[Rfam]
The record is a 93-nucleotide RNA from Paenibacillus whitsoniae, which matches "c-di-GMP-I riboswitch aptamer" in Rfam.
RNA sequence: AAUUUCCAAGGGCAAAUCCGACGAAAGUCGGGGACGCAAAGUCAUGGGUCUAAGUCUCCCGGAUCGGGGAGAUAUGGCUGCCAGACCGCCGAA
Numbered sequence: 001a002a003u004u005u006c007c008a009a010g011g012g013c014a015a016a017u018c019c020g021a022c023g024a025a026a027g028u029c030g031g032g033g034a035c036g037c038a039a040a041g042u043c044a045u046g047g048g049u050c051u052a053a054g055u056c057u058c059c060c061g062g063a064u065c066g067g068g069g070a071g072a073u074a075u076g077g078c079u080g081c082c083a084g085a086c087c088g089c090c091g092a093a
Stems, first nucleotide, its partner, number of pairs: 012037002017032006041086003045083003048078003055072006
From the family's description: GEMM was predicted in a large-scale screen for bacterial structured RNA regulatory elements. Taxonomically the source falls in Paenibacillus (Bacteria, Bacillati, Bacilli, Caryophanales).